[Rfam]
RNA sequence: AUACUCUGGUUUCUCUUCAGAACGCAUAAAUCUUUCGCCUUUUACUAAAGAUUUCCGUGGAGAGAAACAAUUCCGAGUUUCUACCCAAUUUUUUGUAGGCCUUGUUUUAUACAAGGCU
Numbered sequence: 001a002u003a004c005u006c007u008g009g010u011u012u013c014u015c016u017u018c019a020g021a022a023c024g025c026a027u028a029a030a031u032c033u034u035u036c037g038c039c040u041u042u043u044a045c046u047a048a049a050g051a052u053u054u055c056c057g058u059g060g061a062g063a064g065a066a067a068c069a070a071u072u073c074c075g076a077g078u079u080u081c082u083a084c085c086c087a088a089u090u091u092u093u094u095g096u097a098g099g100c101c102u103u104g105u106u107u108u109a110u111a112c113a114a115g116g117c118u
Base pairs, nucleotide, nucleotide: 003078004077005076006075009068010067011066012065013064014063015062016061017060018059019058028054029053030052031051032050033049034048035047097118099117100116101115102114103113104112
The record is a 118-nucleotide RNA sequence from Sousa chinensis, which matches "U5 spliceosomal RNA" in Rfam.
Gene Ontology terms of the family: U5 snRNP and spliceosomal tri-snRNP complex assembly.
By type it is a spliceosomal small nuclear RNA.
On this family, see Thomas et al., Nucleic Acids Res 1990: "The spliceosomal snRNAs of Caenorhabditis elegans".